Shown here is a 52-nucleotide RNA sequence from Breoghania sp. L-A4, a member of the family "ffh sRNA". It is annotated as a small RNA. The match comes from Rfam's covariance-model search (59 bits).
[Rfam]
RNA sequence: GCGCCCGGAGGUCAACACCCGUCAGCGAUAUUCGCCCACGGGUGAUUUCGUG
Numbered sequence: 001g002c003g004c005c006c007g008g009a010g011g012u013c014a015a016c017a018c019c020c021g022u023c024a025g026c027g028a029u030a031u032u033c034g035c036c037c038a039c040g041g042g043u044g045a046u047u048u049c050g051u052g
Stems, first nucleotide, its partner, number of pairs: 016044007025035004
Description:
On this family, see Meyer et al., BMC Genomics 2009: "Identification of candidate structured RNAs in the marine organism 'Candidatus Pelagibacter ubique'".